[Rfam]
RNA sequence: CAUCCGCCCUUCCCGCACAGGAGGGCGGACCGAGGAACCGGCACUCUCUGCCCUGACCGUGUCGGAUCCUCCGAUCGGCCGCCCGGUACCGCACAUUCCGGUGGUCGGUGUUCCUGAAGGGCUGCGGUGCCGUGGGCGGGUUGAGGGUCCCGCCCUGGCGC
Numbered sequence: 001c002a003u004c005c006g007c008c009c010u011u012c013c014c015g016c017a018c019a020g021g022a023g024g025g026c027g028g029a030c031c032g033a034g035g036a037a038c039c040g041g042c043a044c045u046c047u048c049u050g051c052c053c054u055g056a057c058c059g060u061g062u063c064g065g066a067u068c069c070u071c072c073g074a075u076c077g078g079c080c081g082c083c084c085g086g087u088a089c090c091g092c093a094c095a096u097u098c099c100g101g102u103g104g105u106c107g108g109u110g111u112u113c114c115u116g117a118a119g120g121g122c123u124g125c126g127g128u129g130c131c132g133u134g135g136g137c138g139g140g141u142u143g144a145g146g147g148u149c150c151c152g153c154c155c156u157g158g159c160g161c
Stems, first nucleotide, its partner, number of pairs: 003029004008024005032071005038065004043060002045056002076107007085098002112129001114127002119123001134155007
RNA: Streptomyces sRNA scr5239